A member of the RNA family "tRNA" from Aspergillus mulundensis, 126 nucleotides long. NCBI's taxonomy places the organism under Eukaryota, Dikarya, Eurotiomycetidae, Aspergillaceae, Aspergillus subgen. Nidulantes. A search with the family's covariance model found it, with a score of 50 bits.

[Rfam]
RNA sequence: GCCCUUAUAGCUCAGUGGUAGAGCGCGCCACUCGUAUAUGAUGGCUUGGUUAUCUUAUAAAAUGCUAGAUUCAUUCUGGAUCUAAAGGACAUGGCGAGGUCUGCGGUUCAAUCCCGCAUGGGGGCA
Numbered sequence: 001g002c003c004c005u006u007a008u009a010g011c012u013c014a015g016u017g018g019u020a021g022a023g024c025g026c027g028c029c030a031c032u033c034g035u036a037u038a039u040g041a042u043g044g045c046u047u048g049g050u051u052a053u054c055u056u057a058u059a060a061a062a063u064g065c066u067a068g069a070u071u072c073a074u075u076c077u078g079g080a081u082c083u084a085a086a087g088g089a090c091a092u093g094g095c096g097a098g099g100u101c102u103g104c105g106g107u108u109c110a111a112u113c114c115c116g117c118a119u120g121g122g123g124g125c126a
Stems, first nucleotide, its partner, number of pairs: 001125007010024004026096005102118005